[Rfam]
RNA sequence: ACACGGGAGAGGAGGUGAUCCGAGAAGUGGUUGUUCUUCGGACGCGUGAGGUGACUGCCCGCUAGCCGUCAGGCAGCGUGAGCCACCCGGACGGCCUGCUAGUCCCAGGCAGUCACCGGAGCCCGCGGGAGUCGCGCCCUCGUCCAGCGCGACGCCCCCUCCAGGUCGGAGGGGAGCCCGCGGGCUCUUCCAC
Numbered sequence: 001a002c003a004c005g006g007g008a009g010a011g012g013a014g015g016u017g018a019u020c021c022g023a024g025a026a027g028u029g030g031u032u033g034u035u036c037u038u039c040g041g042a043c044g045c046g047u048g049a050g051g052u053g054a055c056u057g058c059c060c061g062c063u064a065g066c067c068g069u070c071a072g073g074c075a076g077c078g079u080g081a082g083c084c085a086c087c088c089g090g091a092c093g094g095c096c097u098g099c100u101a102g103u104c105c106c107a108g109g110c111a112g113u114c115a116c117c118g119g120a121g122c123c124c125g126c127g128g129g130a131g132u133c134g135c136g137c138c139c140u141c142g143u144c145c146a147g148c149g150c151g152a153c154g155c156c157c158c159c160u161c162c163a164g165g166u167c168g169g170a171g172g173g174g175a176g177c178c179c180g181c182g183g184g185c186u187c188u189u190c191c192a193c
Base pairs, nucleotide, nucleotide: 014059015058016057017056019054061099062098065095066094068092069091070090119187120186121185122184123183124182125181126180127179128178129177132152133151134150135149136148137147